terC RNA: a 59-nucleotide RNA from Parapontixanthobacter aurantiacus.
RNA sequence: ACGGGUUACCGGGCCCCUCUGGCGAUAGCUUCCCUUGCAUCGCGAUGUCGGAACAAGUG
Number, nucleotide and partner (000 for none) at each position: 001a000002c000003g000004g000005g000006u053007u052008a000009c051010c050011g049012g048013g000014c000015c000016c000017c000018u000019c000020u000021g000022g043023c042024g041025a040026u039027a000028g038029c037030u000031u000032c000033c000034c000035u000036u000037g029038c028039a026040u025041c024042g023043c022044g000045a000046u000047g000048u012049c011050g010051g009052a007053a006054c000055a000056a000057g000058u000059g000
Source information:
The source organism's lineage runs through Bacteria, Pseudomonadati, Pseudomonadota, Alphaproteobacteria and Parapontixanthobacter. The family has 129 seed sequences and 1,112 matches in Rfam 15.1. The family's RNA type in Rfam is cis-regulatory element. The base pairs follow the family's consensus structure, which is taken from published work.